[Rfam]
RNA: Small nucleolar RNA SNORA8
Organism: Lepisosteus oculatus
RNA sequence: AGCACAGUGUGGUCUGCAGUCGGCCGUUCCCCUGGCUGGGCUGUUAAUUACACAGUGCGAGAGGAACUCUGCAUCUGGCAUCGUUGGCCUCCGUGCUGCCCCCGUGCCUGAGAGGCCUGGUAUUUCUGCAGAGACAAGC
Numbered sequence: 001a002g003c004a005c006a007g008u009g010u011g012g013u014c015u016g017c018a019g020u021c022g023g024c025c026g027u028u029c030c031c032c033u034g035g036c037u038g039g040g041c042u043g044u045u046a047a048u049u050a051c052a053c054a055g056u057g058c059g060a061g062a063g064g065a066a067c068u069c070u071g072c073a074u075c076u077g078g079c080a081u082c083g084u085u086g087g088c089c090u091c092c093g094u095g096c097u098g099c100c101c102c103c104g105u106g107c108c109u110g111a112g113a114g115g116c117c118u119g120g121u122a123u124u125u126c127u128g129c130a131g132a133g134a135c136a137a138g139c
Base pairs, nucleotide, nucleotide: 002058003057004056005055007053016044017043018042019041020040021039022037023036024035025034026033062127063126064125065124066123068120069119071117077108078107079106080105081104